RNA sequence: UGACGGUUGUUGGUAAAGAGGAUCGAACCUGGAAAAUGAUGGUUUGGUCCCCUUCAACCAGCUACCGAUG
Numbered sequence: 001u002g003a004c005g006g007u008u009g010u011u012g013g014u015a016a017a018g019a020g021g022a023u024c025g026a027a028c029c030u031g032g033a034a035a036a037u038g039a040u041g042g043u044u045u046g047g048u049c050c051c052c053u054u055c056a057a058c059c060a061g062c063u064a065c066c067g068a069u070g
Stems, first nucleotide, its partner, number of pairs: 004067003009062006017054002020050008029042001